[Rfam]
RNA sequence: AAAAAAAUAACAUUUGUACCGUAGACAGUAGGUGCCUGUAAGGCUUAAUUUCCUACCGAGGUGUGUGUGAUAAAUUAGUGAACGUUCUGAUUCGCUUAUAACACCUCCAUGUCUUAGUUGUCAUGGAGGUGUUUUAUUUGCACC
Numbered sequence: 001a002a003a004a005a006a007a008u009a010a011c012a013u014u015u016g017u018a019c020c021g022u023a024g025a026c027a028g029u030a031g032g033u034g035c036c037u038g039u040a041a042g043g044c045u046u047a048a049u050u051u052c053c054u055a056c057c058g059a060g061g062u063g064u065g066u067g068u069g070a071u072a073a074a075u076u077a078g079u080g081a082a083c084g085u086u087c088u089g090a091u092u093c094g095c096u097u098a099u100a101a102c103a104c105c106u107c108c109a110u111g112u113c114u115u116a117g118u119u120g121u122c123a124u125g126g127a128g129g130u131g132u133u134u135u136a137u138u139u140g141c142a143c144c
Stems, first nucleotide, its partner, number of pairs: 028056005034044003104129008113120001
RNA: Ribosomal protein L10 leader